[Rfam]
RNA sequence: CAUACAAGAACCAAAAAAGAUGUCAUCCCAGUGCUUGACUACUUGGAUCCAGAAAAUUUAAUUGCAAAUGAACACACUAAGCAAUUGCAUAAUAAAAACUGGAUUCCAGUGUCAGCUACUUGCAUGACAAAUACUCCGAGUUUUGCAGUG
Numbered sequence: 001c002a003u004a005c006a007a008g009a010a011c012c013a014a015a016a017a018a019g020a021u022g023u024c025a026u027c028c029c030a031g032u033g034c035u036u037g038a039c040u041a042c043u044u045g046g047a048u049c050c051a052g053a054a055a056a057u058u059u060a061a062u063u064g065c066a067a068a069u070g071a072a073c074a075c076a077c078u079a080a081g082c083a084a085u086u087g088c089a090u091a092a093u094a095a096a097a098a099c100u101g102g103a104u105u106c107c108a109g110u111g112u113c114a115g116c117u118a119c120u121u122g123c124a125u126g127a128c129a130a131a132u133a134c135u136c137c138g139a140g141u142u143u144u145g146c147a148g149u150g
Stems, first nucleotide, its partner, number of pairs: 011145001013143003021129006028122001030120004035115005041110003045106008
The family of this 150-nucleotide sequence from Trichonephila clavata is "Wolbachia sRNA 46".
The pairing is the family consensus, mapped onto this sequence.